[Rfam]
The record is a 64-nucleotide sequence from Raphidiopsis brookii, which matches "Nitrogen stress-induced RNA 1" in Rfam. The literature on the family includes a 2010 paper in J Mol Biol by Ionescu et al., "Heterocyst-specific transcription of NsiR1, a non-coding RNA encoded in a tandem array of direct repeats in cyanobacteria". The source organism's lineage runs through Bacteria, Bacillati, Cyanobacteriota, Nostocales and Raphidiopsis brookii. Rfam classes the family as a small RNA. Pairs were carried over by alignment from the consensus structure.
RNA sequence: UGGUAGAUGCACCCUGAUAACUAAAUCUCCCCCUAGUCGGACAAAACCGCUGGGGGUUUUUUCU
Numbered sequence: 001u002g003g004u005a006g007a008u009g010c011a012c013c014c015u016g017a018u019a020a021c022u023a024a025a026u027c028u029c030c031c032c033c034u035a036g037u038c039g040g041a042c043a044a045a046a047c048c049g050c051u052g053g054g055g056g057u058u059u060u061u062u063c064u
Stems, first nucleotide, its partner, number of pairs: 002013003030056007038049003